[Rfam]
RNA sequence: AUGCCUUAAACUAAUGAGUAAGGAAAAUAGCAGACCGGUUUGAGACCCGGUCCCUAGACCCUGUCUAGAUCGAUUUUUUGAAGGGUACAGGCUGCCCCUUUCGUGGCCCCCUACUUAGGGGCUGCGGAGGUGUUAGCGGCUUGCCCA
Numbered sequence: 001a002u003g004c005c006u007u008a009a010a011c012u013a014a015u016g017a018g019u020a021a022g023g024a025a026a027a028u029a030g031c032a033g034a035c036c037g038g039u040u041u042g043a044g045a046c047c048c049g050g051u052c053c054c055u056a057g058a059c060c061c062u063g064u065c066u067a068g069a070u071c072g073a074u075u076u077u078u079u080g081a082a083g084g085g086u087a088c089a090g091g092c093u094g095c096c097c098c099u100u101u102c103g104u105g106g107c108c109c110c111c112u113a114c115u116u117a118g119g120g121g122c123u124g125c126g127g128a129g130g131u132g133u134u135a136g137c138g139g140c141u142u143g144c145c146c147a
Base pairs, nucleotide, nucleotide: 004023005022006021007020008019033052034051035050036049037048038047054068055067056066057065058064083146084145085144086143089142090141091140092139093138094137095136098130099129101127102126103125104124105123106122107121108120109119110118
RNA: U12 minor spliceosomal RNA
Organism: Fasciola hepatica